[Rfam]
RNA sequence: UUGCCCUAACACAAUGAAAGCCCUUCCUCUCGAUCAUCCUUAUGGCUCCUUGGCCAUGCCAGUGAGAAUUAGGGGGAAAUCUAACAAUAA
Numbered sequence: 001u002u003g004c005c006c007u008a009a010c011a012c013a014a015u016g017a018a019a020g021c022c023c024u025u026c027c028u029c030u031c032g033a034u035c036a037u038c039c040u041u042a043u044g045g046c047u048c049c050u051u052g053g054c055c056a057u058g059c060c061a062g063u064g065a066g067a068a069u070u071a072g073g074g075g076g077a078a079a080u081c082u083a084a085c086a087a088u089a090a
Base pairs, nucleotide, nucleotide: 034067035066039062040061041058042057043056044055045054046053047052
RNA: BsrC